[Rfam]
Shown here is a 94-nucleotide sequence from Neogemmobacter tilapiae, a member of the family "Glycine riboswitch aptamer". A search with the family's covariance model found it, with a score of 56 bits. Taxonomically the source falls in Neogemmobacter (Bacteria, Pseudomonadota, Alphaproteobacteria, Rhodobacterales). Pairs were carried over by alignment from the consensus structure.
RNA sequence: CCCGUCAGUUCGGGAGAAUCCGGGGGUCAUGCCUCGGUGCCGAAGGAGCAACCGCCCCGGUAAACUCUCAGGCGCAAGGGACCGUUCUGGCAGA
Numbered sequence: 001c002c003c004g005u006c007a008g009u010u011c012g013g014g015a016g017a018a019u020c021c022g023g024g025g026g027u028c029a030u031g032c033c034u035c036g037g038u039g040c041c042g043a044a045g046g047a048g049c050a051a052c053c054g055c056c057c058c059g060g061u062a063a064a065c066u067c068u069c070a071g072g073c074g075c076a077a078g079g080g081a082c083c084g085u086u087c088u089g090g091c092a093g094a
Base pairs, nucleotide, nucleotide: 006089007088008087011084012083013082020037021036022035023034039073040072041071042069043068046067047066048065052060053059